RNA: c-di-AMP riboswitch aptamer (ydaO/yuaA leader)
Organism: Serpentinicella alkaliphila
RNA sequence: ACCCAAUGUAUGCUGAAUUCUGGUAGUCAAACCAGAUACGGAGGAACCAAUCUUAGGGGUUAAUCCAUUCUCAUGGUAGGGAACCUUCUAUCCCGCACCCGUCAGCUAACUCCGGAAGCAAUUAAGGAAGGAGAA
Dot-bracket structure: ..........((((....((((((......))))))..(((((....(.......)(((.....((((....))))..((((........))))...))).........)))))..))))...............